[Rfam]
Cyano-2 RNA: a 201-nucleotide RNA. The base pairs follow the family's consensus structure, which is taken from published work.
RNA sequence: GACGGCCUUGGAAGAGCGAUCCGAGAGCCGGCAGAACCAAUGUCUCCCACGCGAGCGAUCGUGGGAGACAAAGUUCUGUGUAAAUGAAUUCUGAAGAGACUUGGUGCAAUUGCCAGCAAGUACUGGUUCGGACCGAGCUUGUUGAAGCAGACACUGCAUCGCUCGGGAAGAGCAAGCUCUUCUCGCAGUUCUGUAGUCCUU
Numbered sequence: 001g002a003c004g005g006c007c008u009u010g011g012a013a014g015a016g017c018g019a020u021c022c023g024a025g026a027g028c029c030g031g032c033a034g035a036a037c038c039a040a041u042g043u044c045u046c047c048c049a050c051g052c053g054a055g056c057g058a059u060c061g062u063g064g065g066a067g068a069c070a071a072a073g074u075u076c077u078g079u080g081u082a083a084a085u086g087a088a089u090u091c092u093g094a095a096g097a098g099a100c101u102u103g104g105u106g107c108a109a110u111u112g113c114c115a116g117c118a119a120g121u122a123c124u125g126g127u128u129c130g131g132a133c134c135g136a137g138c139u140u141g142u143u144g145a146a147g148c149a150g151a152c153a154c155u156g157c158a159u160c161g162c163u164c165g166g167g168a169a170g171a172g173c174a175a176g177c178u179c180u181u182c183u184c185g186c187a188g189u190u191c192u193g194u195a196g197u198c199c200u201u
Base pairs, nucleotide, nucleotide: 003030004029005028006027007025008024009023010022011021012020031079032078033077034076035075036074037073041070042069043068044067045066046065047064048063049062050061051060147194148193149192150191151190153189154188155187156186157185165184166183167182168181169180170179171178172177